[Rfam]
RNA: Mammalian CPEB3 ribozyme
RNA sequence: GUCGCAGGUUUGUAGGCUACAGCAGAAGUGCUCAAGGCGCAGCCAUGUCAGGCUCCAACGAAUCUGUGAAUUUUGCU
Numbered sequence: 001g002u003c004g005c006a007g008g009u010u011u012g013u014a015g016g017c018u019a020c021a022g023c024a025g026a027a028g029u030g031c032u033c034a035a036g037g038c039g040c041a042g043c044c045a046u047g048u049c050a051g052g053c054u055c056c057a058a059c060g061a062a063u064c065u066g067u068g069a070a071u072u073u074u075g076c077u
Stems, first nucleotide, its partner, number of pairs: 013045001015044004021077007028040003049066004054061002
Dot-bracket structure: ............[.[[[[..((((((((((.......)))]]]]]...((((.((....)).))))....)))))))